[Rfam]
RNA sequence: CCAGAGAAAUUGAAAGUGCAGGGCCUUUCUCAAGACCCCAAGUACAAUUUUUGCAACCCUGCCAGAAUUUAGUUGGUAGGGUA
Numbered sequence: 001c002c003a004g005a006g007a008a009a010u011u012g013a014a015a016g017u018g019c020a021g022g023g024c025c026u027u028u029c030u031c032a033a034g035a036c037c038c039c040a041a042g043u044a045c046a047a048u049u050u051u052u053g054c055a056a057c058c059c060u061g062c063c064a065g066a067a068u069u070u071a072g073u074u075g076g077u078a079g080g081g082u083a
Stems, first nucleotide, its partner, number of pairs: 021038003025034003056082009
RNA: SmY spliceosomal RNA